[Rfam]
RNA: Acido-Lenti-1 RNA
Organism: Chloracidobacterium thermophilum
RNA sequence: CCGUGGGUUGAAACCCACGGCUAAAUUCAGCCGUCGCUACGCGACG
Numbered sequence: 001c002c003g004u005g006g007g008u009u010g011a012a013a014c015c016c017a018c019g020g021c022u023a024a025a026u027u028c029a030g031c032c033g034u035c036g037c038u039a040c041g042c043g044a045c046g
Stems, first nucleotide, its partner, number of pairs: 001020008033045005